[Rfam]
RNA sequence: UGAGCCGAGCGGAAUGAGGUUCUCCGCGGGGCUCCGAGCCCCGAACCGCCGAUGAGGCUGAUGACUUCUGUCCGAGA
Number, nucleotide and partner (000 for none) at each position: 001u000002g000003a000004g000005c000006c000007g000008a000009g000010c026011g025012g024013a023014a000015u000016g068017a067018g066019g065020u064021u063022c000023u013024c012025c011026g010027c000028g000029g000030g000031g000032c000033u000034c000035c000036g000037a000038g000039c000040c000041c000042c000043g000044a000045a000046c000047c000048g058049c057050c056051g000052a000053u000054g000055a000056g050057g049058c048059u000060g000061a000062u000063g021064a020065c019066u018067u017068c016069u000070g000071u000072c000073c000074g000075a000076g000077a000